This 84-nucleotide sequence from Rattus norvegicus belongs to the Rfam family "mir-25 microRNA precursor family". The family's consensus secondary structure was predicted with RNAalifold. The sequence is in the family's curated seed alignment. The source organism's lineage runs through Eukaryota, Eumetazoa, Tetrapoda, Boreoeutheria and Rattus.

RNA sequence: GGCCAGUGUUGAGAGGCGGAGACACGGGCAAUUGCUGGACGCUGCCCUGGGCAUUGCACUUGUCUCGGUCUGACAGUGCCGGCC
Numbered sequence: 001g002g003c004c005a006g007u008g009u010u011g012a013g014a015g016g017c018g019g020a021g022a023c024a025c026g027g028g029c030a031a032u033u034g035c036u037g038g039a040c041g042c043u044g045c046c047c048u049g050g051g052c053a054u055u056g057c058a059c060u061u062g063u064c065u066c067g068g069u070c071u072g073a074c075a076g077u078g079c080c081g082g083c084c
Stems, first nucleotide, its partner, number of pairs: 001084004006079004014071004019066005028057005034052003037046002